[Rfam]
RNA sequence: AUUUAUUUUCAGGGCGAGGUGCGAUUCCUCACCGGCGGUGUUCCUCUUGGGGUAAGCCCGCGAGCCGAAAGGCAUGAUUUGGUGUGAUUCCAAAGCCGACAGUAUAGUCUGGAUGAAAGAAGAUGAUA
Numbered sequence: 001a002u003u004u005a006u007u008u009u010c011a012g013g014g015c016g017a018g019g020u021g022c023g024a025u026u027c028c029u030c031a032c033c034g035g036c037g038g039u040g041u042u043c044c045u046c047u048u049g050g051g052g053u054a055a056g057c058c059c060g061c062g063a064g065c066c067g068a069a070a071g072g073c074a075u076g077a078u079u080u081g082g083u084g085u086g087a088u089u090c091c092a093a094a095g096c097c098g099a100c101a102g103u104a105u106a107g108u109c110u111g112g113a114u115g116a117a118a119g120a121a122g123a124u125g126a127u128a
Stems, first nucleotide, its partner, number of pairs: 003126008017029003031108002033098002035061004056096002066072001078094005100111003